[Rfam]
RNA sequence: GAUGAAUCAAUUGCCAGCCAGACCCGGGCAUUACCGUGCCGGGGCGAGGGCGGCGAAAAGAGGAGUCC
Numbered sequence: 001g002a003u004g005a006a007u008c009a010a011u012u013g014c015c016a017g018c019c020a021g022a023c024c025c026g027g028g029c030a031u032u033a034c035c036g037u038g039c040c041g042g043g044g045c046g047a048g049g050g051c052g053g054c055g056a057a058a059a060g061a062g063g064a065g066u067c068c
Stems, first nucleotide, its partner, number of pairs: 011056003015053001017051003023044003027040005
Source information
The family of this 68-nucleotide sequence from Corticibacter populi is "ilvH RNA". The source organism's lineage runs through Bacteria, Pseudomonadati, Betaproteobacteria, Burkholderiales and Corticibacter. It scores 65 bits against the family's covariance model.